[Rfam]
Nucleotides: 133
Base pairs, nucleotide, nucleotide: 004037005036006035007034008033009032014031015030016029017028018027019026048080049079050078051077054074055073057071058070059069060068061067097129099127101125102124103123104122105121106120107119109117
Number, partner (000 for none) and nucleotide at each position: 001000g002000a003000u004037a005036c006035c007034u008033u009032u010000a011000a012000a013000a014031u015030c016029a017028g018027u019026c020000c021000a022000g023000a024000g025000a026019g027018g028017c029016u030015g031014g032009g033008a034007a035006g036005g037004u038000u039000g040000c041000u042000c043000g044000g045000a046000a047000g048080u049079a050078c051077g052000a053000u054074g055073g056000a057071a058070c059069u060068g061067c062000u063000g064000c065000g066000c067061g068060c069059a070058g071057u072000a073055u074054c075000u076000a077051u078050g079049u080048a081000c082000a083000u084000u085000u086000u087000u088000u089000c090000u091000g092000c093000a094000c095000g096000u097129a098000u099127a100000c101125c102124c103123u104122c105121c106120c107119g108000c109117c110000a111000a112000u113000a114000a115000a116000g117109g118000c119107c120106g121105g122104g123103g124102g125101g126000a127099u128000u129097u130000u131000u132000u133000u
A member of the RNA family "PyrR binding site" from Sporosarcina sp. JAI121, 133 nucleotides long. This family represents the PyrR binding site and terminator structure. Rfam classes the family as a cis-regulatory element.